Rfam assigns this 84-nucleotide RNA sequence from Pedionomus torquatus to the family "Small nucleolar RNA SNORD121A".
The organism belongs to Pedionomus, within Eukaryota.
The literature on the family includes a 2006 paper in Nucleic Acids Res by Yang et al., "snoSeeker: an advanced computational package for screening of guide and orphan snoRNA genes in the human genome".
[Rfam]
RNA sequence: GUCCGAAAUACAGUGAUGUUUUCUCUUCCAAGCACAUAUCUGAUUGAUCUGUGUAGAAAAUGACUGUUGCUGAGUGUUUUGGAU
Numbered sequence: 001g002u003c004c005g006a007a008a009u010a011c012a013g014u015g016a017u018g019u020u021u022u023c024u025c026u027u028c029c030a031a032g033c034a035c036a037u038a039u040c041u042g043a044u045u046g047a048u049c050u051g052u053g054u055a056g057a058a059a060a061u062g063a064c065u066g067u068u069g070c071u072g073a074g075u076g077u078u079u080u081g082g083a084u
Stems, first nucleotide, its partner, number of pairs: 001084006008077004